[Rfam]
RNA sequence: CUCUUAUCCAGAGUGGUGGAGGGAAGUGCCCUUUGAUACCACGGCAACCGUCUUACGACAAGGUGCCAAGUCACUGAAUCGAUCGAUUCGAAGAUGAGAG
Numbered sequence: 001c002u003c004u005u006a007u008c009c010a011g012a013g014u015g016g017u018g019g020a021g022g023g024a025a026g027u028g029c030c031c032u033u034u035g036a037u038a039c040c041a042c043g044g045c046a047a048c049c050g051u052c053u054u055a056c057g058a059c060a061a062g063g064u065g066c067c068a069a070g071u072c073a074c075u076g077a078a079u080c081g082a083u084c085g086a087u088u089c090g091a092a093g094a095u096g097a098g099a100g
Stems, first nucleotide, its partner, number of pairs: 001100008013042005021031003025075004043067004048063002050059003071092001076089005

Description:
The record is a 100-nucleotide sequence from Lacicoccus alkaliphilus, which matches "SAM riboswitch aptamer (S box leader)" in Rfam. Its family is annotated with regulation of gene expression in the Gene Ontology. Pairs were carried over by alignment from the consensus structure, which is taken from published work. Rfam describes the family as follows. The SAM riboswitch is found upstream of a number of genes which code for proteins involved in methionine or cysteine biosynthesis in Gram-positive bacteria.